The record is a 175-nucleotide RNA from Allobosea caraganae, which matches "caulobacter sRNA CC2171" in Rfam. The match comes from Rfam's covariance-model search (90 bits).
RNA sequence: UAACAACUGAAAGGAGGUGAUCCAGUGUCUCAUUGUCAUCAACCGCUGGUGCAAGGCGGGCGGACCUGGACUCAUUCCCUGUGGGGGUCUUGUUCCGCGUGAGUUUUCGCGCCUUUGGGUCCGGUUCGCCGGGCCGCGGUUCGACAAUGGAAGGGCUGCCCGCAAGGGCGGCCCU
Numbered sequence: 001u002a003a004c005a006a007c008u009g010a011a012a013g014g015a016g017g018u019g020a021u022c023c024a025g026u027g028u029c030u031c032a033u034u035g036u037c038a039u040c041a042a043c044c045g046c047u048g049g050u051g052c053a054a055g056g057c058g059g060g061c062g063g064a065c066c067u068g069g070a071c072u073c074a075u076u077c078c079c080u081g082u083g084g085g086g087g088u089c090u091u092g093u094u095c096c097g098c099g100u101g102a103g104u105u106u107u108c109g110c111g112c113c114u115u116u117g118g119g120u121c122c123g124g125u126u127c128g129c130c131g132g133g134c135c136g137c138g139g140u141u142c143g144a145c146a147a148u149g150g151a152a153g154g155g156c157u158g159c160c161c162g163c164a165a166g167g168g169c170g171g172c173c174c175u
Stems, first nucleotide, its partner, number of pairs: 016023002031149007048065001050063001069089005090124003093119001095118003101112001103110002152175010